[Rfam]
RNA sequence: UACAUAGCCAUGGGGGGCAUAGAAGGAGCGUUCACGUCAUGGUCCUUAUCAGGCUUCGACCUGCGAAUCCUCCU
Numbered sequence: 001u002a003c004a005u006a007g008c009c010a011u012g013g014g015g016g017g018c019a020u021a022g023a024a025g026g027a028g029c030g031u032u033c034a035c036g037u038c039a040u041g042g043u044c045c046u047u048a049u050c051a052g053g054c055u056u057c058g059a060c061c062u063g064c065g066a067a068u069c070c071u072c073c074u
Base pairs, nucleotide, nucleotide: 013046014045015044016043018041021074022073024071025070026069027068028040030038050063051062052061053060
RNA: Mammalian CPEB3 ribozyme
Organism: Eptatretus burgeri